Shown here is an 80-nucleotide RNA sequence from Flavobacterium macacae, a member of the family "Flavo-1 RNA". The family's RNA type in Rfam is small RNA. Rfam 15.1 lists 7,497 matches to the family in 411 species. The match comes from Rfam's covariance-model search (50 bits).
[Rfam]
RNA sequence: AAAUAGCCCCGAUGUCAGUGACUACCCUUUCUUUUUUUUCUUUAAAAAAAGAAAGAUAGUGCUGAACAGCGGGAAAAUGG
Number, nucleotide and partner (000 for none) at each position: 001a000002a000003a000004u000005a000006g000007c000008c000009c072010c071011g070012a000013u068014g067015u000016c000017a000018g063019u000020g000021a000022c000023u058024a057025c000026c055027c000028u000029u053030u052031c051032u050033u049034u048035u047036u046037u045038u044039u000040c000041u000042u000043u000044a038045a037046a036047a035048a034049a033050a032051g031052a030053a029054a000055g026056a000057u024058a023059g000060u000061g000062c000063u018064g000065a000066a000067c014068a013069g000070c011071g010072g009073g000074a000075a000076a000077a000078u000079g000080g000